[Rfam]
RNA sequence: GUGCCGGAUUUAAACACUUCUGAGUUGCUCACAUGCUCAGAAGAACAAGGUUCGGAAAAUUAGUGAUCAUUUGAUGUGCUGAACUCCAAAGAGUCAAAACUGAGUUGGUGAUCGUACAUUU
Dot-bracket structure: ....(((((((.....(((((((((.........)))))))))....)))))))............(((((....((..(((.(((....))))))..))......)))))..........
Numbered sequence: 001g002u003g004c005c006g007g008a009u010u011u012a013a014a015c016a017c018u019u020c021u022g023a024g025u026u027g028c029u030c031a032c033a034u035g036c037u038c039a040g041a042a043g044a045a046c047a048a049g050g051u052u053c054g055g056a057a058a059a060u061u062a063g064u065g066a067u068c069a070u071u072u073g074a075u076g077u078g079c080u081g082a083a084c085u086c087c088a089a090a091g092a093g094u095c096a097a098a099a100c101u102g103a104g105u106u107g108g109u110g111a112u113c114g115u116a117c118a119u120u121u
Stems, first nucleotide, its partner, number of pairs: 005054007017043009067111005076100002080096003084093003

This 121-nucleotide sequence from Caenorhabditis elegans belongs to the Rfam family "Caenorhabditis snoRNA ceN48". Gene Ontology terms of the family: RNA processing and nucleolus. The organism belongs to Caenorhabditis, within Eukaryota. Rfam's curators put it in the seed alignment.